Description:
Rfam assigns this 75-nucleotide RNA from Microlunatus phosphovorus to the family "Fluoride riboswitch aptamer (crcB RNA motif)". Lineage of the source: Bacteria > Actinomycetota > Propionibacteriaceae > Microlunatus > Microlunatus phosphovorus. The family's consensus secondary structure is taken from published work.
[Rfam]
Nucleotides: 075
Stems, first nucleotide, its partner, number of pairs: 010025004016066002019063003045056004
Number, partner (000 for none) and nucleotide at each position: 001000g002000u003000g004000a005000a006000u007000c008000g009000c010025g011024g012023c013022g014000a015000u016066g017065g018000c019063g020062u021061c022013c023012g024011c025010c026000a027000g028000g029000g030000g031000u032000a033000g034000c035000u036000c037000c038000c039000c040000g041000a042000a043000c044000c045056g046055c047054c048053c049000c050000g051000c052000a053048g054047g055046g056045c057000u058000g059000a060000u061021g062020a063019c064000u065017c066016c067000u068000g069000a070000g071000a072000c073000g074000a075000u